RNA sequence: UCCAGCAGUAGUCAGCUGUCCAGAUAGAGCCAUUCCUGUGAUGGUGUUACACUGCUGGAAGAGGGCAGUCCUGUCGUCGUCUUCCAGUGGCUUCUGUCACUCUUCUGGUGGUGCCUGCUGCUGGUGCAAGGCAGAACUGUGCUUCCUUGAGAGGGUGCUGAACGUUCACUCUGGCCACUUAGCUCUAGUCUGGGAGCAGACACA
Number, nucleotide and partner (000 for none) at each position: 001u059002c058003c057004a056005g055006c054007a053008g052009u051010a000011g050012u049013c000014a000015g045016c044017u043018g042019u041020c040021c038022a037023g036024a034025u000026a000027g000028a000029g000030c000031c000032a000033u000034u024035c000036c023037u022038g021039u000040g020041a019042u018043g017044g016045u015046g000047u000048u000049a012050c011051a009052c008053u007054g006055c005056u004057g003058g002059a001060a000061g000062a000063g000064g000065g000066c000067a000068g137069u136070c000071c134072u133073g132074u131075c130076g000077u000078c000079g000080u000081c000082u000083u124084c123085c120086a119087g118088u117089g116090g115091c000092u113093u000094c111095u000096g000097u000098c110099a109100c108101u107102c000103u000104u000105c000106u000107g101108g100109u099110g098111g094112u000113g092114c000115c090116u089117g088118c087119u086120g085121c000122u000123g084124g083125u000126g000127c000128a000129a000130g075131g074132c073133a072134g071135a000136a069137c068138u000139g000140u198141g197142c196143u195144u194145c193146c192147u000148u000149g000150a000151g000152a000153g000154g000155g185156u000157g183158c000159u181160g180161a179162a000163c000164g176165u000166u000167c000168a000169c000170u000171c000172u000173g000174g000175c000176c164177a000178c000179u161180u160181a159182g000183c157184u000185c155186u000187a000188g000189u000190c000191u000192g146193g145194g144195a143196g142197c141198a140199g000200a000201c000202a000203c000204a000